[Rfam]
Record summary: SAM (S-adenosyl methionine) riboswitch aptamer: a 118-nucleotide RNA from Arthrobacter sp. NamB2. Lineage of the source: Bacteria > Actinomycetes > Micrococcales > Micrococcaceae > Arthrobacter. Rfam's curators write: SAM-IV is a mRNA element that regulates gene expression via direct sensing of S-adenosylmethionine (SAM or AdoMet). A search with the family's covariance model found it, with a score of 115 bits.

RNA sequence: GGUCAUGAGUGCCAGCACGAAGCCCCGGCUUGCUGGCCGGCAACCCUCCAACCGCGGUGGGGUGCCCCGGGUGAGGACCAGGCUCGGCGUCGCCAAUGGCGCCGUGCAAGCGCGGGCU
Numbered sequence: 001g002g003u004c005a006u007g008a009g010u011g012c013c014a015g016c017a018c019g020a021a022g023c024c025c026c027g028g029c030u031u032g033c034u035g036g037c038c039g040g041c042a043a044c045c046c047u048c049c050a051a052c053c054g055c056g057g058u059g060g061g062g063u064g065c066c067c068c069g070g071g072u073g074a075g076g077a078c079c080a081g082g083c084u085c086g087g088c089g090u091c092g093c094c095a096a097u098g099g100c101g102c103c104g105u106g107c108a109a110g111c112g113c114g115g116g117c118u
Base pairs, nucleotide, nucleotide: 001079002078003077004076009038011037012036013035014034015033016032021030022029039066040065041064044062045061046060048057049056082107083106085104086103087102088101089100090099091098
Dot-bracket structure: ((((....(.((((((....((......)).)))))))(((..(((.((......))..))).))).........))))..((.(((((((......))))))).))...........